[Rfam]
RNA sequence: UUUGGUGCGAUGAUUAUAAAGAAUAAUUCCUCGUUCUGACUGCCAGUUGGCAUGACAGACUCUUCAACACCCAUAGAAUAUGAGCACCA
Numbered sequence: 001u002u003u004g005g006u007g008c009g010a011u012g013a014u015u016a017u018a019a020a021g022a023a024u025a026a027u028u029c030c031u032c033g034u035u036c037u038g039a040c041u042g043c044c045a046g047u048u049g050g051c052a053u054g055a056c057a058g059a060c061u062c063u064u065c066a067a068c069a070c071c072c073a074u075a076g077a078a079u080a081u082g083a084g085c086a087c088c089a
Stems, first nucleotide, its partner, number of pairs: 003089002006086002
This 89-nucleotide sequence from Colocasia esculenta belongs to the Rfam family "Small nucleolar RNA snoR8a".
Rfam classes the family as a C/D-box small nucleolar RNA.
The organism belongs to Colocasia, within Eukaryota.
It scores 80 bits against the family's covariance model.
The family has 7 seed sequences and 956 matches in Rfam 15.1.
A reference for the family is Brown et al. (2001), "Multiple snoRNA gene clusters from Arabidopsis", RNA.
Rfam links the family to the GO terms nucleolus and RNA processing.